[Rfam]
RNA sequence: AGAGUUGGUGGCUAGGGUUCCGGCGUUCUCGGAGAGCGCGGCUGGUCCGAGAGCCACCACCGGCGGGGGAGAAAUCCCGCCGGGUGCACGGCGGGACAAAAGCCCGGGAGAC
Number, nucleotide and partner (000 for none) at each position: 001a000002g000003a000004g000005u000006u000007g058008g057009u056010g055011g054012c053013u000014a000015g048016g047017g000018u000019u000020c045021c044022g042023g039024c038025g037026u036027u035028c034029u000030c000031g000032g000033a000034g028035a027036g026037c025038g024039c023040g000041g000042c022043u000044g021045g020046u000047c016048c015049g000050a000051g000052a000053g012054c011055c010056a009057c008058c007059a085060c083061c082062g081063g080064c079065g078066g077067g076068g075069g000070a000071g000072a000073a000074a000075u068076c067077c066078c065079g064080c063081c062082g061083g060084g000085u059086g000087c107088a000089c110090g000091g000092c000093g105094g104095g103096a000097c000098a000099a000100a000101a000102g000103c095104c094105c093106g000107g087108g000109a000110g089111a000112c000
The family of this 112-nucleotide RNA from Rhizobium sp. BK275 is "Guanidine-I riboswitch aptamer". A search with the family's covariance model found it, with a score of 93 bits. On this family, see Nelson et al., Mol Cell 2017: "Metabolism of Free Guanidine in Bacteria Is Regulated by a Widespread Riboswitch Class". NCBI's taxonomy places the organism under Bacteria, Pseudomonadota, Alphaproteobacteria, Hyphomicrobiales, Rhizobium.